[Rfam]
RNA sequence: GCGGGGCUGCCUGGUGCGUGAGAGACAGCAUUCCCCGGGCCCAUACGACUCCCUAGGGAGCUGUCCCUGACCGGAUCCAUCGGAACCGGACACACGGCGCCCACCUACUUUAGUAGGUGUCCCGGGAUUCAAAACUCCACGGCCAAGGUGGCUCCGCA
Numbered sequence: 001g002c003g004g005g006g007c008u009g010c011c012u013g014g015u016g017c018g019u020g021a022g023a024g025a026c027a028g029c030a031u032u033c034c035c036c037g038g039g040c041c042c043a044u045a046c047g048a049c050u051c052c053c054u055a056g057g058g059a060g061c062u063g064u065c066c067c068u069g070a071c072c073g074g075a076u077c078c079a080u081c082g083g084a085a086c087c088g089g090a091c092a093c094a095c096g097g098c099g100c101c102c103a104c105c106u107a108c109u110u111u112a113g114u115a116g117g118u119g120u121c122c123c124g125g126g127a128u129u130c131a132a133a134a135c136u137c138c139a140c141g142g143c144c145a146a147g148g149u150g151g152c153u154c155c156g157c158a
Base pairs, nucleotide, nucleotide: 002156003155004154005153006152007151008150009149010148011147012145013144014143015142017141018140019139032127033126034125035124037122038121039120040117041116056102057101058100060098061097062096063095064094071089072088073087074086
The family of this 158-nucleotide RNA from Allobosea thiooxidans is "6S / SsrS RNA". The family's consensus secondary structure is taken from published work. NCBI's taxonomy places the organism under Bacteria, Pseudomonadota, Alphaproteobacteria, Hyphomicrobiales, Allobosea. Rfam's curators write: E. coli 6S RNA was the first non coding RNA to be sequenced, but its function was unknown until recently. It consists of 184 nucleotides that fold into an extended hairpin structure with a large single-stranded internal bulge. It is annotated as a non-coding RNA gene.